[Rfam]
RNA sequence: UGUUUUUGUUGGGUAGGCAGUGCCUUACAAGAUGGAGGAGAAAUUCUCCAUCUUGUAAGGCACUGCCUACCCAACAAAAACA
Numbered sequence: 001u002g003u004u005u006u007u008g009u010u011g012g013g014u015a016g017g018c019a020g021u022g023c024c025u026u027a028c029a030a031g032a033u034g035g036a037g038g039a040g041a042a043a044u045u046c047u048c049c050a051u052c053u054u055g056u057a058a059g060g061c062a063c064u065g066c067c068u069a070c071c072c073a074a075c076a077a078a079a080a081c082a
Stems, first nucleotide, its partner, number of pairs: 001082013015068010027056010
The record is an 82-nucleotide sequence from Microcaecilia unicolor, which matches "mir-449 microRNA precursor family" in Rfam. A reference for the family is Linsen et al. (2010), "Small RNA expression and strain specificity in the rat", BMC Genomics. Gene Ontology terms of the family: RISC complex and miRNA-mediated post-transcriptional gene silencing. The family is grouped with related families in Rfam's "mir-34 clan". The family's consensus secondary structure was predicted with RNAalifold.